[Rfam]
About this RNA: The record is a 73-nucleotide RNA sequence from Octopus sinensis, which matches "Small nucleolar RNA SNORD83" in Rfam. On this family, see Jady and Kiss, Nucleic Acids Res 2000: "Characterisation of the U83 and U84 small nucleolar RNAs: two novel 2'-O-ribose methylation guide RNAs that lack complementarities to ribosomal RNAs". It is annotated as a C/D-box small nucleolar RNA. It scores 37 bits against the family's covariance model. The base pairs follow the family's consensus structure, which was predicted with PFOLD.
RNA sequence: GUCAGAUGAUGAAUUUAUCCAUUGAAGUGUUAAGCUCAUGAUGACACUUAUCCAUCACCCUAUUCUGAUGGCG
Number, nucleotide and partner (000 for none) at each position: 001g072002u071003c070004a069005g000006a000007u000008g000009a000010u000011g000012a000013a000014u000015u000016u000017a000018u000019c000020c000021a000022u000023u000024g000025a000026a000027g037028u000029g035030u034031u000032a000033a000034g030035c029036u000037c027038a000039u000040g000041a000042u000043g000044a000045c000046a000047c000048u000049u000050a000051u000052c000053c000054a000055u000056c000057a000058c000059c000060c000061u000062a000063u000064u000065c000066u000067g000068a000069u004070g003071g002072c001073g000